Source information:
The family of this 105-nucleotide sequence from Alteromonas hispanica is "Ribosomal S15 leader". Pairs were carried over by alignment from the consensus structure, which is taken from published work. A reference for the family is Benard et al. (1996), "Pseudoknot and translational control in the expression of the S15 ribosomal protein", Biochimie. By type it is a cis-regulatory leader. Gene Ontology term of the family: regulation of translation, ncRNA-mediated.

RNA sequence: CCGUUCUGCUGAAUUAGUGAUCGGCGGGACAUAAUUUAGGAGAAUGUUAUGUCACUAACUAAAGAACAAACUGCAAAAAUCAUUGCUGAGUACGGCGUUAAAGAA
Numbered sequence: 001c002c003g004u005u006c007u008g009c010u011g012a013a014u015u016a017g018u019g020a021u022c023g024g025c026g027g028g029a030c031a032u033a034a035u036u037u038a039g040g041a042g043a044a045u046g047u048u049a050u051g052u053c054a055c056u057a058a059c060u061a062a063a064g065a066a067c068a069a070a071c072u073g074c075a076a077a078a079a080u081c082a083u084u085g086c087u088g089a090g091u092a093c094g095g096c097g098u099u100a101a102a103g104a105a
Stems, first nucleotide, its partner, number of pairs: 007026006037058001039056002042053001